[Rfam]
RNA sequence: GGGAGUUGAUGAGGUCCUGGUGGUCUCCCCGGUCUUCAAAACCGAGUGAGGGGCACGUGUUGUCCCUGGUGGGUUCGAUUCCCACCUUCUCCC
Dot-bracket structure: (((((..(..(((((.(....))))))..((((.......))))....(((((.........)))))..((((.......)))).)..)))))
A member of the RNA family "Selenocysteine transfer RNA" from Ammoniphilus oxalaticus, 93 nucleotides long.
Rfam 15.1 lists 4,211 matches to the family in 3,344 species.
The organism belongs to Ammoniphilus, within Bacteria.